[Rfam]
RNA: Manganese Mn2+ riboswitch aptamer (yybP-ykoY)
Organism: Blastomonas sp. AAP25
RNA sequence: UCUGAUGGGGAGUAGCCAACCGGUGCGGUGCACCGGUCCGCGCGUCAACACACUUGGUCGAGAGGCCAUGGUGCGCGGGUUUCCGGACCUUUUUCGAGGCCCGGCUUCCGGCAAGACCGAUGACACCUGAUCCCAUUGUCCGGCCGGGCAGGGGGAAAGGUGUUGUUGCGUUUUUGCUUGAAACCCUGCU
Dot-bracket structure: ...................(((...........))).((((((((((.......(((((....)))))))))))))))......(.......................................................................................................).